Small nucleolar RNA Me28S-Gm1083: a 95-nucleotide RNA sequence from Drosophila grimshawi.
By type it is a C/D-box small nucleolar RNA.
It is one of the family's seed sequences.

[Rfam]
RNA sequence: UAUUUUGUGAUGAGAAUUUAACUUUCGCCCCUAUCUGAACACAAAUGUGAAACUUCUCAUGUUGAAUGCGAUAUUGGUCUUGCUGAUAAUAAAAC
Numbered sequence: 001u002a003u004u005u006u007g008u009g010a011u012g013a014g015a016a017u018u019u020a021a022c023u024u025u026c027g028c029c030c031c032u033a034u035c036u037g038a039a040c041a042c043a044a045a046u047g048u049g050a051a052a053c054u055u056c057u058c059a060u061g062u063u064g065a066a067u068g069c070g071a072u073a074u075u076g077g078u079c080u081u082g083c084u085g086a087u088a089a090u091a092a093a094a095c
Stems, first nucleotide, its partner, number of pairs: 001092001002090003